RNA: Alphaproteobacterial ar15
RNA sequence: GCGUCGGGCGUUCUCCUCCCAUUACGCACGACGCGUUCCCCUCUGGAGGUUUUGACCUUCACACCUUGGCCGAAUCCUUGGAUUCGGCCAUUUUU
Numbered sequence: 001g002c003g004u005c006g007g008g009c010g011u012u013c014u015c016c017u018c019c020c021a022u023u024a025c026g027c028a029c030g031a032c033g034c035g036u037u038c039c040c041c042u043c044u045g046g047a048g049g050u051u052u053u054g055a056c057c058u059u060c061a062c063a064c065c066u067u068g069g070c071c072g073a074a075u076c077c078u079u080g081g082a083u084u085c086g087g088c089c090a091u092u093u094u095u
Stems, first nucleotide, its partner, number of pairs: 001034005008027002044061007067090010